ROOL RNA: a 583-nucleotide sequence. The family's consensus secondary structure is taken from published work.
[Rfam]
RNA sequence: GCUUUGUUAUGGGUACAAAAUAACUCGGUGUAGAUUGGUUAGUCACCAUGCCGAGAUUAUAUGAAUGUUGAGUAUUGACAUAGAAGGAUACUUUUAUGCUGGUGCUUUCGAUAUAUUGUGAGAUAUAUUAAGUAGACGGAAACUGUCAAUAACAAAUAUAAGUGCAAAACAUUAUCGCAGCAAAAAGUAGAUUUCAGGACGUUGGUGUAAUAGACGCUCAGUGAGAAGAAUCUUGAGGCUUGGCAGGUGGAACUGUGCAAGAUUGUAGAGAAAAUCCAAAUAAACCAAUUGUGUCGUUGAUACGCAGAAAUGUGUGUAUAAGUCCUGUUUAUCGUCUGAGUAGCCCAAAUCGACAUUAAAAUAAAACACAUAUAAUAGAAGAAAUUUAUAAAACAAAAAAUCUUUUCUGAAUGACAUGGGUGAAAGAUAGAGGUAAUCAGCCCUCUUUAUUCUUGAUGCUUAAUGCAUUGCUAUGGAAGUAAUGAGGUAGCUCCUUAUUGCUCAGACUAUAGUAAAUUAUGACUGAAUAUUGGUACGAUUUUGUUUUUGUAAGGUGAAGACCUAUUUUUGUGUUCAUAGUAAA
Numbered sequence: 001g002c003u004u005u006g007u008u009a010u011g012g013g014u015a016c017a018a019a020a021u022a023a024c025u026c027g028g029u030g031u032a033g034a035u036u037g038g039u040u041a042g043u044c045a046c047c048a049u050g051c052c053g054a055g056a057u058u059a060u061a062u063g064a065a066u067g068u069u070g071a072g073u074a075u076u077g078a079c080a081u082a083g084a085a086g087g088a089u090a091c092u093u094u095u096a097u098g099c100u101g102g103u104g105c106u107u108u109c110g111a112u113a114u115a116u117u118g119u120g121a122g123a124u125a126u127a128u129u130a131a132g133u134a135g136a137c138g139g140a141a142a143c144u145g146u147c148a149a150u151a152a153c154a155a156a157u158a159u160a161a162g163u164g165c166a167a168a169a170c171a172u173u174a175u176c177g178c179a180g181c182a183a184a185a186a187g188u189a190g191a192u193u194u195c196a197g198g199a200c201g202u203u204g205g206u207g208u209a210a211u212a213g214a215c216g217c218u219c220a221g222u223g224a225g226a227a228g229a230a231u232c233u234u235g236a237g238g239c240u241u242g243g244c245a246g247g248u249g250g251a252a253c254u255g256u257g258c259a260a261g262a263u264u265g266u267a268g269a270g271a272a273a274a275u276c277c278a279a280a281u282a283a284a285c286c287a288a289u290u291g292u293g294u295c296g297u298u299g300a301u302a303c304g305c306a307g308a309a310a311u312g313u314g315u316g317u318a319u320a321a322g323u324c325c326u327g328u329u330u331a332u333c334g335u336c337u338g339a340g341u342a343g344c345c346c347a348a349a350u351c352g353a354c355a356u357u358a359a360a361a362u363a364a365a366a367c368a369c370a371u372a373u374a375a376u377a378g379a380a381g382a383a384a385u386u387u388a389u390a391a392a393a394c395a396a397a398a399a400a401u402c403u404u405u406u407c408u409g410a411a412u413g414a415c416a417u418g419g420g421u422g423a424a425a426g427a428u429a430g431a432g433g434u435a436a437u438c439a440g441c442c443c444u445c446u447u448u449a450u451u452c453u454u455g456a457u458g459c460u461u462a463a464u465g466c467a468u469u470g471c472u473a474u475g476g477a478a479g480u481a482a483u484g485a486g487g488u489a490g491c492u493c494c495u496u497a498u499u500g501c502u503c504a505g506a507c508u509a510u511a512g513u514a515a516a517u518u519a520u521g522a523c524u525g526a527a528u529a530u531u532g533g534u535a536c537g538a539u540u541u542u543g544u545u546u547u548u549g550u551a552a553g554g555u556g557a558a559g560a561c562c563u564a565u566u567u568u569u570g571u572g573u574u575c576a577u578a579g580u581a582a583a
Stems, first nucleotide, its partner, number of pairs: 008579001012575002017569004024055005036048004057161006072105005079098008106132003110128001112127006135147005168546002174540001180534002183531001186530001187524001190333003195327006201289006217225002231271004236266001239261004244255003248278004292355005301316005337426001343421005406506004430446001432444002449517002451467001469515001472512001476508001479502001481499007552563004
Rfam's curators put it in the seed alignment.